[Rfam]
RNA sequence: UACGUGCUCCGGGGUCGGUGUAAUUCCGAACCGGCGGUGACAGUCCGCGACCCGUGAGGCCCUUGGGCCGAGCGGUUGACCUGGUGGAACUCCAGGACCGACGGUGAAAGUCCGGAUGGGAGGAAGCACGAG
Numbered sequence: 001u002a003c004g005u006g007c008u009c010c011g012g013g014g015u016c017g018g019u020g021u022a023a024u025u026c027c028g029a030a031c032c033g034g035c036g037g038u039g040a041c042a043g044u045c046c047g048c049g050a051c052c053c054g055u056g057a058g059g060c061c062c063u064u065g066g067g068c069c070g071a072g073c074g075g076u077u078g079a080c081c082u083g084g085u086g087g088a089a090c091u092c093c094a095g096g097a098c099c100g101a102c103g104g105u106g107a108a109a110g111u112c113c114g115g116a117u118g119g120g121a122g123g124a125a126g127c128a129c130g131a132g
Stems, first nucleotide, its partner, number of pairs: 003130006009123002016028003030111002032100002034048004043098002052075004080096005102114003
RNA: FMN riboswitch aptamer (RFN element)
Organism: Beutenbergia cavernae